[Rfam]
RNA sequence: AAGCAUAUCCGUAGACCUUGUCUGACUCUACUCAUGGUCAGUCAGGGGGGACAGUGUAUGCAAGAUUAAUUGGUGUUCAUGUGAGGAUUAACUUGUUUAAUCAGUACCUGGGUAAAUCACAGUACUCAAACAUUU
Numbered sequence: 001a002a003g004c005a006u007a008u009c010c011g012u013a014g015a016c017c018u019u020g021u022c023u024g025a026c027u028c029u030a031c032u033c034a035u036g037g038u039c040a041g042u043c044a045g046g047g048g049g050g051a052c053a054g055u056g057u058a059u060g061c062a063a064g065a066u067u068a069a070u071u072g073g074u075g076u077u078c079a080u081g082u083g084a085g086g087a088u089u090a091a092c093u094u095g096u097u098u099a100a101u102c103a104g105u106a107c108c109u110g111g112g113u114a115a116a117u118c119a120c121a122g123u124a125c126u127c128a129a130a131c132a133u134u135u
Stems, first nucleotide, its partner, number of pairs: 003061006016047005022041003073127001075125001077124001080121003092111002095108001

The record is a 135-nucleotide RNA from Cricetulus griseus, which matches "Small nucleolar RNA SNORA58" in Rfam. Rfam's curators write: ACA52 is a member of the H/ACA class of snoRNA that guide the sites of modification of uridines to pseudouridines. The family's RNA type in Rfam is H/ACA-box small nucleolar RNA. Rfam 15.1 lists 471 matches to the family in 320 species. NCBI's taxonomy places the organism under Eukaryota, Metazoa, Chordata, Sarcopterygii, Cricetulus. The family is grouped with related families in Rfam's "SNORA44 clan". A reference for the family is Huttenhofer et al. (2001), "RNomics: an experimental approach that identifies 201 candidates for novel, small, non-messenger RNAs in mouse", EMBO J. The base pairs follow the family's consensus structure, which was predicted with PFOLD.